Rfam assigns this 100-nucleotide RNA from Methylovulum psychrotolerans to the family "t44 RNA".
By type it is a small RNA.
NCBI's taxonomy places the organism under Bacteria, Gammaproteobacteria, Methylococcales, Methylococcaceae, Methylovulum.
The match comes from Rfam's covariance-model search (71 bits).
Rfam's curators write: This family consists of a number of bacterial RNA genes of between 135 and 170 bases in length. The t44 gene has been identified in several species of enteric bacteria but homologs have also been identified in Pseudomonas and Coxiella species. The t44 gene is found between the map and rpsB genes in all species in the full alignment apart from Shigella flexneri. The function of this RNA is unknown.
The base pairs follow the family's consensus structure, which was predicted with LocARNA.
RNA sequence: UUCAUUUUUGUACCAAUACUCACAUUUAUCGUCACGUUUGGAAGGGUGCCGGGUCGCCGUGUGCGGACUGGUUUCCAGACGGGAUAAGUGGAGGCGUAAC
Numbered sequence: 001u002u003c004a005u006u007u008u009u010g011u012a013c014c015a016a017u018a019c020u021c022a023c024a025u026u027u028a029u030c031g032u033c034a035c036g037u038u039u040g041g042a043a044g045g046g047u048g049c050c051g052g053g054u055c056g057c058c059g060u061g062u063g064c065g066g067a068c069u070g071g072u073u074u075c076c077a078g079a080c081g082g083g084a085u086a087a088g089u090g091g092a093g094g095c096g097u098a099a100c
Stems, first nucleotide, its partner, number of pairs: 023090008035081009048072005